[Rfam]
RNA sequence: CUUCCUCGAUCUGCUGCGGGCAGAUGAAGUGGAUGUGGCUGUCGAUGCCGCCGGCGGUGAGGAUCAUGCCCUCGCCGGCGAGGAUUUCCGUGCCCGGGCCGAUGACCAUGUCCACCCCCGGCUGCACGUCCGGGUUGCCGGCCUUGCCGAUGGCGGCGAUGCGCUGGCCGCGGAUGCCCACGUCCGCCUUGAUGAUGCCCCAGUGGUCGAGGAUGAGGGCGUUGGUGAUGACCAGAUCCAUCGCGCCUUCGGCGCGCGUGGCCUGGCCCUGGCCCAUGCCGUCGCGGAUG
Numbered sequence: 001c002u003u004c005c006u007c008g009a010u011c012u013g014c015u016g017c018g019g020g021c022a023g024a025u026g027a028a029g030u031g032g033a034u035g036u037g038g039c040u041g042u043c044g045a046u047g048c049c050g051c052c053g054g055c056g057g058u059g060a061g062g063a064u065c066a067u068g069c070c071c072u073c074g075c076c077g078g079c080g081a082g083g084a085u086u087u088c089c090g091u092g093c094c095c096g097g098g099c100c101g102a103u104g105a106c107c108a109u110g111u112c113c114a115c116c117c118c119c120g121g122c123u124g125c126a127c128g129u130c131c132g133g134g135u136u137g138c139c140g141g142c143c144u145u146g147c148c149g150a151u152g153g154c155g156g157c158g159a160u161g162c163g164c165u166g167g168c169c170g171c172g173g174a175u176g177c178c179c180a181c182g183u184c185c186g187c188c189u190u191g192a193u194g195a196u197g198c199c200c201c202a203g204u205g206g207u208c209g210a211g212g213a214u215g216a217g218g219g220c221g222u223u224g225g226u227g228a229u230g231a232c233c234a235g236a237u238c239c240a241u242c243g244c245g246c247c248u249u250c251g252g253c254g255c256g257c258g259u260g261g262c263c264u265g266g267c268c269c270u271g272g273c274c275c276a277u278g279c280c281g282u283c284g285c286g287g288a289u290g
Stems, first nucleotide, its partner, number of pairs: 001290001003288001005286001007284003012158006018076002022072002030053003034050002037048001040045001057069003077148002081144003085140001090138003094134002097130003101125001104123001106121002110117001163273004170268001174264001176263001177261002185221006200209001223258002225255001230250002234248002
5' ureB small RNA: a 290-nucleotide sequence from Thiomonas delicata. Rfam 15.1 lists 4,812 matches to the family in 4,480 species. The source organism's lineage runs through Bacteria, Pseudomonadati, Pseudomonadota, Betaproteobacteria and Thiomonas. A search with the family's covariance model found it, with a score of 127 bits. The family's consensus secondary structure was predicted with mfold.